[Rfam]
The record is a 116-nucleotide sequence from Callorhinus ursinus, which matches "U4atac minor spliceosomal RNA" in Rfam. The organism belongs to Callorhinus, within Eukaryota. Its Rfam clan is "U4 clan". Rfam classes the family as a spliceosomal small nuclear RNA. About the family: U4atac is an essential component of the minor U12-type spliceosome complex which is required for removal of the rarer class of eukaryotic introns (AT-AC, U12-type). A search with the family's covariance model found it, with a score of 64 bits. Its family is annotated with U4atac snRNP, pre-mRNA 5'-splice site binding and mRNA 5'-splice site recognition in the Gene Ontology. The family's consensus secondary structure is taken from published work.
RNA sequence: ACCAUCCUUUCCUUGGGGUUGCGCUACUGUCCACUGAGCGGUCAGCGAGGGCAGUACUGCUAACGCCUGACCAACACGCUCGAACACGCUGCGGGGUGGCUAAGCAGCUUGCAAAC
Numbered sequence: 001a002c003c004a005u006c007c008u009u010u011c012c013u014u015g016g017g018g019u020u021g022c023g024c025u026a027c028u029g030u031c032c033a034c035u036g037a038g039c040g041g042u043c044a045g046c047g048a049g050g051g052c053a054g055u056a057c058u059g060c061u062a063a064c065g066c067c068u069g070a071c072c073a074a075c076a077c078g079c080u081c082g083a084a085c086a087c088g089c090u091g092c093g094g095g096g097u098g099g100c101u102a103a104g105c106a107g108c109u110u111g112c113a114a115a116c
Base pairs, nucleotide, nucleotide: 006018007017008016009015021060022059023058026055027054028053029052030051031050032049038046039045093116096112097111098109099108100107101106